Overview: 7SK RNA: a 331-nucleotide RNA from Edolisoma coerulescens. Taxonomically the source falls in Edolisoma (Eukaryota, Sarcopterygii, Neognathae, Corvoidea). About the family: 7SK was discovered as an abundant small nuclear RNA in the mid-70s but a possible function has only recently been suggested. Two independent studies have found that 7SK RNA binds the CDK9/cyclin T complex (known as elongation factor P-TEFb). P-TEFb activates transcription by phosphorylating the C-terminal domain of RNA polymerase II. This process is negatively regulated by the 7SK RNP. The secondary structure of 7SK RNA shown here was proposed by Wasserman and Steitz on the basis of chemical modification and enzymatic cleavage experiments.

Nucleotides: 331
Stems, first nucleotide, its partner, number of pairs: 001109003006102006013094002018091002024088002027085005033079001035074001037070003042067004046062001117171002121166002123140004128136002141162003148158003201271001203269001207265002210262006222253002225250001228248005294331003300322001303317003307313001
Number, partner (000 for none) and nucleotide at each position: 001109g002108g003107a004000u005000g006102u007101g008100a009099g010098g011097g012000u013094a014093a015000u016000c017000u018091g019090g020000c021000u022000g023000u024088g025087a026000g027085a028084u029083c030082u031081g032000a033079u034000g035074u036000g037070c038069c039068a040000c041000u042067g043066a044065u045064u046062g047000c048000a049000c050000a051000g052000g053000u054000u055000g056000a057000u058000u059000u060000g061000a062046c063000u064045g065044g066043u067042c068039u069038g070037g071000c072000u073000a074035g075000c076000u077000u078000a079033g080000g081031u082030g083029g084028g085027u086000g087025u088024c089000c090019c091018c092000u093014u094013u095000c096000u097011u098010c099009c100008u101007c102006a103000g104000c105000a106000u107003u108002c109001c110000a111000u112000g113000u114000g115000u116000g117171u118170u119000c120000c121166u122165c123140c124139u125138g126137g127000a128136g129135c130000c131000g132000u133000g134000u135129g136128c137126u138125u139124g140123g141162u142161u143160a144000a145000u146000g147000a148158g149157g150156a151000c152000a153000g154000c155000c156150u157149c158148c159000c160143u161142a162141a163000c164000a165122g166121a167000c168000a169000u170118g171117g172000u173000a174000u175000u176000g177000u178000u179000c180000a181000c182000u183000g184000g185000u186000c187000a188000a189000g190000g191000g192000u193000g194000u195000g196000c197000g198000g199000a200000a201271g202000c203269u204000g205000u206000g207265c208264u209000c210262c211261c212260c213259u214258g215257c216000u217000g218000g219000a220000a221000g222253c223252u224000c225250u226000c227000a228248g229247u230246a231245a232244g233000c234000u235000c236000a237000g238000g239000g240000u241000c242000c243000a244232u245231u246230u247229g248228u249000a250225g251000a252223a253222g254000a255000c256000u257215g258214u259213a260212g261211g262210g263000u264208a265207g266000u267000c268000a269203a270000a271201c272000a273000u274000c275000c276000a277000a278000u279000a280000c281000u282000a283000a284000a285000g286000a287000c288000a289000c290000a291000u292000c293000c294331a295330a296329a297000u298000g299000a300322g301000a302000a303317g304316c305315u306000c307313c308000a309000u310000g311000c312000a313307g314000c315305a316304g317303c318000c319000u320000g321000c322300c323000a324000g325000a326000g327000g328000c329296u330295u331294u